Shown here is an 80-nucleotide RNA sequence from Callorhinchus milii, a member of the family "mir-130 microRNA precursor family". A reference for the family is Houbaviy et al. (2003), "Embryonic stem cell-specific MicroRNAs", Dev Cell. Rfam links the family to the GO terms miRNA-mediated post-transcriptional gene silencing and RISC complex. The family has 9 seed sequences and 2,580 matches in Rfam 15.1. Taxonomically the source falls in Callorhinchus (Eukaryota, Chordata, Vertebrata, Chimaeriformes).

[Rfam]
RNA sequence: UGUUGUCCGGGGCCCUUUUCAUGUUGUACUACUGGGAAGUUGAGUUAAGCAGUGCAAUAUUAAAAGGGCAUUGGCUGGCA
Numbered sequence: 001u002g003u004u005g006u007c008c009g010g011g012g013c014c015c016u017u018u019u020c021a022u023g024u025u026g027u028a029c030u031a032c033u034g035g036g037a038a039g040u041u042g043a044g045u046u047a048a049g050c051a052g053u054g055c056a057a058u059a060u061u062a063a064a065a066g067g068g069c070a071u072u073g074g075c076u077g078g079c080a
Base pairs, nucleotide, nucleotide: 001080002079003078005075007074008073009072010071012069013068014067015066016065017064018063019062022059023058024057025056026055027054028053029052030051